[Rfam]
RNA sequence: UGACCAUCCGAAAGGAUUAAGGCCAUACGGACAGCCGGGUCAACUGCCGA
Numbered sequence: 001u002g003a004c005c006a007u008c009c010g011a012a013a014g015g016a017u018u019a020a021g022g023c024c025a026u027a028c029g030g031a032c033a034g035c036c037g038g039g040u041c042a043a044c045u046g047c048c049g050a
Stems, first nucleotide, its partner, number of pairs: 001042005006017004
Record summary: This 50-nucleotide RNA sequence from Firmicutes bacterium CAG:424 belongs to the Rfam family "Streptococcus sRNA SpF59 (ldcC RNA)". By type it is a small RNA. Rfam's curators put it in the seed alignment. For this family Rfam cites "Control of virulence by small RNAs in Streptococcus pneumoniae" (Mann et al., PLoS Pathog, 2012).